[Rfam]
RNA sequence: GCAUAGUAUUACCAUCAGCAACACACCUUACCUUCGUUUUUUUCAUUCAGUACAUAGGUGGUAGAUGCUAGACUGCAGGAAUGAAUAAAACAUGAGUCUCAGGUGGUCUCUGUCCCUUGUUUCAUCCUAAUUCUAAUUUAGUUGGUAACAUUUUGAAAGUACUGCAUAUAUCAGUAUAAGUGAUGAUCGAA
Numbered sequence: 001g002c003a004u005a006g007u008a009u010u011a012c013c014a015u016c017a018g019c020a021a022c023a024c025a026c027c028u029u030a031c032c033u034u035c036g037u038u039u040u041u042u043u044c045a046u047u048c049a050g051u052a053c054a055u056a057g058g059u060g061g062u063a064g065a066u067g068c069u070a071g072a073c074u075g076c077a078g079g080a081a082u083g084a085a086u087a088a089a090a091c092a093u094g095a096g097u098c099u100c101a102g103g104u105g106g107u108c109u110c111u112g113u114c115c116c117u118u119g120u121u122u123c124a125u126c127c128u129a130a131u132u133c134u135a136a137u138u139u140a141g142u143u144g145g146u147a148a149c150a151u152u153u154u155g156a157a158a159g160u161a162c163u164g165c166a167u168a169u170a171u172c173a174g175u176a177u178a179a180g181u182g183a184u185g186a187u188c189g190a191a
Stems, first nucleotide, its partner, number of pairs: 028191002034186005042180002045177001047176001051063003065167004071127001074124001077122003095118002100112004131157003135152003139148001
Shown here is a 191-nucleotide sequence from Otolemur crassicaudatus, a member of the family "Beta-globin co-transcriptional cleavage ribozyme". Pairs were carried over by alignment from the consensus structure, which is taken from published work. The source organism's lineage runs through Eukaryota, Eumetazoa, Deuterostomia, Gnathostomata and Otolemur. The literature on the family includes a 2004 paper in Nature by Teixeira et al., "Autocatalytic RNA cleavage in the human beta-globin pre-mRNA promotes transcription termination". Transcription termination of RNA polymerase II transcripts is proposed to occur by a two stage process.